[Rfam]
RNA sequence: UUCAUCCUUGUCUUUGGGGAGCAAAGUAUUCGAUGAUCGUUUAGUGAGGAUACUGUUGCUAAAGCCCAUUACGUUGUUAAACUCGCAUCCACGUACAUUUUGUCAUGAGAUGCAAUUUUUGUAAGC
Numbered sequence: 001u002u003c004a005u006c007c008u009u010g011u012c013u014u015u016g017g018g019g020a021g022c023a024a025a026g027u028a029u030u031c032g033a034u035g036a037u038c039g040u041u042u043a044g045u046g047a048g049g050a051u052a053c054u055g056u057u058g059c060u061a062a063a064g065c066c067c068a069u070u071a072c073g074u075u076g077u078u079a080a081a082c083u084c085g086c087a088u089c090c091a092c093g094u095a096c097a098u099u100u101u102g103u104c105a106u107g108a109g110a111u112g113c114a115a116u117u118u119u120u121g122u123a124a125g126c
Base pairs, nucleotide, nucleotide: 005019006018007017008016021059022058023057024056025054026053027052028051029050030049031048038044085113086112087111088110089109090107093103096102097101

The family of this 126-nucleotide RNA from Melipona bicolor is "U4atac minor spliceosomal RNA". The base pairs follow the family's consensus structure, which is taken from published work. The source organism's lineage runs through Eukaryota, Endopterygota, Apinae, Meliponini and Melipona. It is annotated as a spliceosomal small nuclear RNA.